The family of this 83-nucleotide RNA sequence from methanotrophic endosymbiont of Bathymodiolus azoricus is "tRNA".
A search with the family's covariance model found it, with a score of 54 bits.
Transfer RNA (tRNA) molecules are approximately 80 nucleotides in length.
By type it is a transfer RNA.
RNA sequence: GCGAAUGUGGUGGAACGGUAGACACGUCAGCUUGAGGGGCUGGUGCCAGCAAUGGCGUGGGGGUUCAAAUCCCCCCAUUCGCA
Numbered sequence: 001g002c003g004a005a006u007g008u009g010g011u012g013g014a015a016c017g018g019u020a021g022a023c024a025c026g027u028c029a030g031c032u033u034g035a036g037g038g039g040c041u042g043g044u045g046c047c048a049g050c051a052a053u054g055g056c057g058u059g060g061g062g063g064u065u066c067a068a069a070u071c072c073c074c075c076c077a078u079u080c081g082c083a
Stems, first nucleotide, its partner, number of pairs: 001082007010025003027043005059075005